Record summary:
The family of this 132-nucleotide RNA from Manacus vitellinus is "Small nucleolar RNA SNORA56". By type it is an H/ACA-box small nucleolar RNA. Gene Ontology terms of the family: RNA processing and nucleolus. It scores 82 bits against the family's covariance model. From the family's description: ACA56 is a member of the H/ACA class of snoRNA that guide the sites of modification of uridines to pseudouridines. Its Rfam clan is "SNORA56 clan".
[Rfam]
RNA sequence: GAGCAGACAGUUAUCCCUUUUUAGCCUGUCUUGUGGUUCUAGAGGGAGUCAGUCUGCUAAAUUAAUGGGAAAGGCCUUGCUGUUGCCCAGCCCAGCUGGCCCUGGUGCAGGCUGCAGGUCUUCCCCACACCA
Dot-bracket structure: ..((((((...........(((((((........))..)))))........)))))).........(((((.(.(((.......(((...(.(.(.......).).)..)))...)))).))))).......
Numbered sequence: 001g002a003g004c005a006g007a008c009a010g011u012u013a014u015c016c017c018u019u020u021u022u023a024g025c026c027u028g029u030c031u032u033g034u035g036g037u038u039c040u041a042g043a044g045g046g047a048g049u050c051a052g053u054c055u056g057c058u059a060a061a062u063u064a065a066u067g068g069g070a071a072a073g074g075c076c077u078u079g080c081u082g083u084u085g086c087c088c089a090g091c092c093c094a095g096c097u098g099g100c101c102c103u104g105g106u107g108c109a110g111g112c113u114g115c116a117g118g119u120c121u122u123c124c125c126c127a128c129a130c131c132a
Stems, first nucleotide, its partner, number of pairs: 003057006020043005025036002067125005073119001075118003085112003091107001093105001095103001